[Rfam]
RNA sequence: UCAUCCCCAGAUGUUCACCGUACGUGCCGCCCACGCUGUGGGCGGGGCAGACGCAGACGAGUGGUCCGGAAGAUGAAGGCCGGGCCCGCGAGGCAAAGCACGACCUGGGCUCGCCGAAGUCUGCGU
Numbered sequence: 001u002c003a004u005c006c007c008c009a010g011a012u013g014u015u016c017a018c019c020g021u022a023c024g025u026g027c028c029g030c031c032c033a034c035g036c037u038g039u040g041g042g043c044g045g046g047g048c049a050g051a052c053g054c055a056g057a058c059g060a061g062u063g064g065u066c067c068g069g070a071a072g073a074u075g076a077a078g079g080c081c082g083g084g085c086c087c088g089c090g091a092g093g094c095a096a097a098g099c100a101c102g103a104c105c106u107g108g109g110c111u112c113g114c115c116g117a118a119g120u121c122u123g124c125g126u
Stems, first nucleotide, its partner, number of pairs: 006109005020104002023102004027045008051126008061087001063085001088114005
RNA: EGFOA RNA